Background
The record is a 62-nucleotide RNA sequence, which matches "Gag/pol translational readthrough site" in Rfam. Gene Ontology term of the family: viral translational readthrough.

RNA sequence: UAGGGGGGUCGGGGUCAGGAGCCCCCCCCUGAACCCAGGAUAACCCUCAAAGUAGGGAGGCA
Numbered sequence: 001u002a003g004g005g006g007g008g009u010c011g012g013g014g015u016c017a018g019g020a021g022c023c024c025c026c027c028c029c030u031g032a033a034c035c036c037a038g039g040a041u042a043a044c045c046c047u048c049a050a051a052g053u054a055g056g057g058a059g060g061c062a
Stems, first nucleotide, its partner, number of pairs: 008041003012036004016031004022060002025057003